Chlorobi-RRM RNA: a 75-nucleotide sequence from Chlorobium phaeobacteroides.
NCBI's taxonomy places the organism under Bacteria, Pseudomonadati, Chlorobiota, Chlorobium, Chlorobium phaeobacteroides.
Pairs were carried over by alignment from the consensus structure, which is taken from published work.
[Rfam]
RNA sequence: ACAUCAGCCAAUGGUUGGCUGAUCGCUAUCGGAUAACGUGUGCUUUUGGUUAUUUGACAGCGGUUCUCUUUCUAU
Numbered sequence: 001a002c003a004u005c006a007g008c009c010a011a012u013g014g015u016u017g018g019c020u021g022a023u024c025g026c027u028a029u030c031g032g033a034u035a036a037c038g039u040g041u042g043c044u045u046u047u048g049g050u051u052a053u054u055u056g057a058c059a060g061c062g063g064u065u066c067u068c069u070u071u072c073u074a075u
Base pairs, nucleotide, nucleotide: 004022005021006020007019008018009017010016011015024062025061026060027059030056031055032054033053034052035051036050037049